[Rfam]
RNA sequence: AAACCAGCCAAUGGUUGGCUGGUCGCUUACAGGUAAUUUGUGCCUUGGUUAUCUGCAGAGCGCCUCUUUCUAU
Numbered sequence: 001a002a003a004c005c006a007g008c009c010a011a012u013g014g015u016u017g018g019c020u021g022g023u024c025g026c027u028u029a030c031a032g033g034u035a036a037u038u039u040g041u042g043c044c045u046u047g048g049u050u051a052u053c054u055g056c057a058g059a060g061c062g063c064c065u066c067u068u069u070c071u072a073u
Base pairs, nucleotide, nucleotide: 004022005021006020007019008018009017010016011015024062025061026060027059030055031054032053033052034051035050036049037048038047

The record is a 73-nucleotide sequence from Pelodictyon luteolum, which matches "Chlorobi-RRM RNA" in Rfam. The source organism's lineage runs through Bacteria, Chlorobiales, Chlorobiaceae, Pelodictyon and Pelodictyon luteolum. It is one of the family's seed sequences. Pairs were carried over by alignment from the consensus structure, which is taken from published work.